[Rfam]
RNA sequence: CAGCACUUGAUACUCACCGAGCUAUCUAUAUCCUAGUCUUGUGUCCAAGGCCUGUGAUAUGUGGUGAUAGCUGGGUAGAAGAAGUGCAAUAUUAAAACAAGCCAUGAGUCUGUUAAGCCCAGAGUGUAAAGACACACUCUGAGUUAUAACUCAUAGGCACAACU
Numbered sequence: 001c002a003g004c005a006c007u008u009g010a011u012a013c014u015c016a017c018c019g020a021g022c023u024a025u026c027u028a029u030a031u032c033c034u035a036g037u038c039u040u041g042u043g044u045c046c047a048a049g050g051c052c053u054g055u056g057a058u059a060u061g062u063g064g065u066g067a068u069a070g071c072u073g074g075g076u077a078g079a080a081g082a083a084g085u086g087c088a089a090u091a092u093u094a095a096a097a098c099a100a101g102c103c104a105u106g107a108g109u110c111u112g113u114u115a116a117g118c119c120c121a122g123a124g125u126g127u128a129a130a131g132a133c134a135c136a137c138u139c140u141g142a143g144u145u146a147u148a149a150c151u152c153a154u155a156g157g158c159a160c161a162a163c164u
Stems, first nucleotide, its partner, number of pairs: 003087006016076003020072007027061006033054001036051005101158003122137001124135004138155001140153005
RNA: Small Cajal body specific RNA 1
Organism: Dipodomys ordii